[Rfam]
RNA: Plastid-psbN 5UTR RNA
RNA sequence: UUCGACAAGGGUAGUUCCCCACCCCGGAGCUACCUUUCCAUAUUCUGAAUUC
Numbered sequence: 001u002u003c004g005a006c007a008a009g010g011g012u013a014g015u016u017c018c019c020c021a022c023c024c025c026g027g028a029g030c031u032a033c034c035u036u037u038c039c040a041u042a043u044u045c046u047g048a049a050u051u052c
Stems, first nucleotide, its partner, number of pairs: 008036011